[Rfam]
RNA sequence: AAAGUAUUAGCUGUAGCAGAUGGUCGACAAAUCUGACAAUUUGAGCUUGACAAAUCUGACAAUUUGAGCUUGCUAUAUCAACAAAAUCUAACCUAUUCCAAUGUUCUCCUCUAUGAGACAAGCCAUUAUAUAGAUUUAGACAGU
Numbered sequence: 001a002a003a004g005u006a007u008u009a010g011c012u013g014u015a016g017c018a019g020a021u022g023g024u025c026g027a028c029a030a031a032u033c034u035g036a037c038a039a040u041u042u043g044a045g046c047u048u049g050a051c052a053a054a055u056c057u058g059a060c061a062a063u064u065u066g067a068g069c070u071u072g073c074u075a076u077a078u079c080a081a082c083a084a085a086a087u088c089u090a091a092c093c094u095a096u097u098c099c100a101a102u103g104u105u106c107u108c109c110u111c112u113a114u115g116a117g118a119c120a121a122g123c124c125a126u127u128a129u130a131u132a133g134a135u136u137u138a139g140a141c142a143g144u
Stems, first nucleotide, its partner, number of pairs: 011066001012061002017058005084137007094130003102122001105118004
Dot-bracket structure: ..........(((...(((((................................))))).))....).................(((((((...(((.....(..((((......))))...).....)))))))))).......